RNA sequence: AUGAGUUUCCAAUCUCUCUCAAGGAUUGGUGGUGCGGAUGGGACUCUCUCCCGCCUGGUUUCCAAUUUCCAGUCAAAGAAUUGGUGGCGUGCAUGAAA
Dot-bracket structure: ........(((((((.......))))))).........(((((.....))))).[[[[...((((((.]]]]......))))))..............
The family of this 98-nucleotide sequence from Serangoonvirus essarone is "wcaG RNA".
It is annotated as a cis-regulatory element.
The organism belongs to Serangoonvirus essarone, within Viruses.
Pairs were carried over by alignment from the consensus structure, which is taken from published work.